[Rfam]
Shown here is a 126-nucleotide sequence from Halobacillus sp. BBL2006, a member of the family "Ribosomal protein L20 leader". The organism belongs to Halobacillus, within Bacteria. The match comes from Rfam's covariance-model search (83 bits). Rfam's curators write: This family is a putative r-protein leader autoregulatory structure found in B. subtilis and other low-GC Gram-positive bacteria. It is located in the 5' untranslated regions of mRNAs encoding initiation factor 3 followed by ribosomal proteins L35 and L20 (infC-rpmI-rplT). Its family is annotated with regulation of gene expression in the Gene Ontology. It is annotated as a cis-regulatory leader.
RNA sequence: AGAGACAAGUAGAAGCACCCGCUUCUCACCUGAUCGACGCACAAAGCAGUUGGCAGGUCAUAAAUCCUUUUUUAAACGAUAGGAUAAGUGUGGGUGCAGUAUGUGUGCCGACGCUUUUUUUAGUGU
Number, nucleotide and partner (000 for none) at each position: 001a000002g000003a000004g000005a000006c000007a000008a000009g000010u000011a026012g025013a024014a023015g022016c021017a000018c000019c000020c000021g016022c015023u014024u013025c012026u011027c000028a058029c057030c056031u000032g000033a000034u000035c000036g051037a050038c049039g047040c046041a000042c000043a000044a000045a000046g040047c039048a000049g038050u037051u036052g000053g000054c000055a000056g030057g029058u028059c000060a000061u000062a000063a000064a000065u000066c000067c000068u000069u000070u000071u000072u000073u000074a000075a000076a000077c000078g000079a000080u000081a000082g000083g000084a000085u000086a000087a000088g000089u113090g112091u111092g000093g109094g108095u107096g106097c105098a104099g000100u000101a000102u000103g000104u098105g097106u096107g095108c094109c093110g000111a091112c090113g089114c000115u000116u000117u000118u000119u000120u000121u000122a000123g000124u000125g000126u000